RNA sequence: GGUGGCGGGCCCACCGAAAUCGCCAUACAGGUGGAGGUUUCAAACCGCCUUAAGGUGCUGUGGUCAAAAGCUAUGGUAUUGAGCGUUAAGGAAAAGGCAGCGAUAGCUGUCAGGU
Dot-bracket structure: (((((.....)))))((((((.((((....)))).))))))....(.((((((((.(((.((((.....)))).))).)).....))))))....((((((....))))))..).